Small nucleolar RNA snoR639/H1: a 139-nucleotide sequence from Drosophila kikkawai. Lineage of the source: Eukaryota > Cyclorrhapha > Acalyptratae > Drosophilidae > Sophophora.

[Rfam]
RNA sequence: ACCCCAUGAUAUUAAGCCGGCAGGUGCUUGCAAUCCCCACGAGCGCCUGUGACUAUGAUUGGGAACAGCAACCGCCACUGAUGUGUGUAUGUUGGGCAGCGCUUACCUCGCGCGUUCGACAAAGUAAUUUCAGACGACA
Numbered sequence: 001a002c003c004c005c006a007u008g009a010u011a012u013u014a015a016g017c018c019g020g021c022a023g024g025u026g027c028u029u030g031c032a033a034u035c036c037c038c039a040c041g042a043g044c045g046c047c048u049g050u051g052a053c054u055a056u057g058a059u060u061g062g063g064a065a066c067a068g069c070a071a072c073c074g075c076c077a078c079u080g081a082u083g084u085g086u087g088u089a090u091g092u093u094g095g096g097c098a099g100c101g102c103u104u105a106c107c108u109c110g111c112g113c114g115u116u117c118g119a120c121a122a123a124g125u126a127a128u129u130u131c132a133g134a135c136g137a138c139a
Base pairs, nucleotide, nucleotide: 020050021049022048023047024046025045026044027043078133079132080131081130090121091120092119093118094117095116096115099113100112101111102110
snoR639 or snoH1 belongs to the H/ACA class of snoRNAs which are thought to guide the sites of modification of uridines to pseudouridines. snoH1 is found in an intron of the mfl gene in Drosophila. Its family is annotated with nucleolus and RNA processing in the Gene Ontology. A search with the family's covariance model found it, with a score of 146 bits.